A member of the RNA family "MIR5565 microRNA precursor family" from Sorghum bicolor, 109 nucleotides long.
Gene Ontology terms of the family: miRNA-mediated post-transcriptional gene silencing and RISC complex.
Rfam 15.1 lists 3,346 matches to the family in 5 species.
NCBI's taxonomy places the organism under Eukaryota, Euphyllophyta, Poaceae, Andropogonodae, Sorghum.
The match comes from Rfam's covariance-model search (110 bits).

Nucleotides: 109
Base pairs, nucleotide, nucleotide: 004108005107006106007105008104009103010102011101013099014098016096017095018094019093020092021091022090023089024088025087026086028084029083030082031081032080035077036076037075038074039073040072041071042070045067046066047065
Number, partner (000 for none) and nucleotide at each position: 001000g002000u003000a004108g005107u006106c007105g008104g009103a010102u011101u012000c013099g014098c015000a016096u017095c018094a019093a020092u021091c022090c023089a024088c025087a026086u027000g028084u029083g030082u031081u032080g033000g034000g035077g036076u037075g038074g039073a040072u041071u042070g043000a044000a045067g046066u047065g048000g049000a050000a051000c052000u053000u054000a055000a056000a057000c058000u059000a060000a061000a062000u063000u064000u065047c066046a067045c068000u069000c070042c071041g072040a073039u074038c075037c076036a077035c078000u079000c080032c081031a082030a083029c084028a085000a086026a087025u088024g089023u090022g091021g092020a093019u094018u095017g096016a097000g098014g099013u100000a101011a102010a103009u104008c105007c106006g107005a108004u109000a